RNA sequence: CUUGGCCGAACCCAGCAGCAGCGGGUGGCCGGCACGCCGGCCGUAGGUGGCCAGGACCGCCUGCGCCUC
Numbered sequence: 001c002u003u004g005g006c007c008g009a010a011c012c013c014a015g016c017a018g019c020a021g022c023g024g025g026u027g028g029c030c031g032g033c034a035c036g037c038c039g040g041c042c043g044u045a046g047g048u049g050g051c052c053a054g055g056a057c058c059g060c061c062u063g064c065g066c067c068u069c
Stems, first nucleotide, its partner, number of pairs: 014026001016024001032064002035059002037054001039052001041050003
RNA: ASpks TB sRNA